[Rfam]
RNA sequence: GGAGGUGCGUGUCAGUGAUGGCACAGCUGAACAUCGAUCGCUUUGGUUUCUUUAGCAGAUCUGCUCAGUCACGUGCAGUCACCAGGUCGAUUCAGUCAUCAAUGGACCUGCCGUUGUCUAGUCGCACGGUUAGUCAUCCAAUGAUAACUCGAACGUCCGCAAUUUUCUAAAUUUUCACGGAUGGUUAACGAUUAAAUUUAAAACACCUCCAGAUAAUUGGCACUGCGGUCUGCAGUUCGCCAUUUUUUGA
Numbered sequence: 001g002g003a004g005g006u007g008c009g010u011g012u013c014a015g016u017g018a019u020g021g022c023a024c025a026g027c028u029g030a031a032c033a034u035c036g037a038u039c040g041c042u043u044u045g046g047u048u049u050c051u052u053u054a055g056c057a058g059a060u061c062u063g064c065u066c067a068g069u070c071a072c073g074u075g076c077a078g079u080c081a082c083c084a085g086g087u088c089g090a091u092u093c094a095g096u097c098a099u100c101a102a103u104g105g106a107c108c109u110g111c112c113g114u115u116g117u118c119u120a121g122u123c124g125c126a127c128g129g130u131u132a133g134u135c136a137u138c139c140a141a142u143g144a145u146a147a148c149u150c151g152a153a154c155g156u157c158c159g160c161a162a163u164u165u166u167c168u169a170a171a172u173u174u175u176c177a178c179g180g181a182u183g184g185u186u187a188a189c190g191a192u193u194a195a196a197u198u199u200a201a202a203a204c205a206c207c208u209c210c211a212g213a214u215a216a217u218u219g220g221c222a223c224u225g226c227g228g229u230c231u232g233c234a235g236u237u238c239g240c241c242a243u244u245u246u247u248u249g250a
Base pairs, nucleotide, nucleotide: 001210002209003208004207005206006205007204015082016081017080018079019078027068028067029066032063033062036061037060038059039058040056041055042054219241220240221239222236223235224234225233226232
RNA: Arthropod 7SK RNA